[Rfam]
RNA: Small nucleolar RNA Z43
Organism: Phaseolus vulgaris
RNA sequence: AGACUGUGAUGAUUUCUGUGUUGGCCAAAUCGGCCUUGCCGACUAAUCUGCUAUAUCACCACCCAGGUUCUGAGUCC
Numbered sequence: 001a002g003a004c005u006g007u008g009a010u011g012a013u014u015u016c017u018g019u020g021u022u023g024g025c026c027a028a029a030u031c032g033g034c035c036u037u038g039c040c041g042a043c044u045a046a047u048c049u050g051c052u053a054u055a056u057c058a059c060c061a062c063c064c065a066g067g068u069u070c071u072g073a074g075u076c077c
Stems, first nucleotide, its partner, number of pairs: 002076003027037002
Dot-bracket structure: .(((......................((.......))....................................))).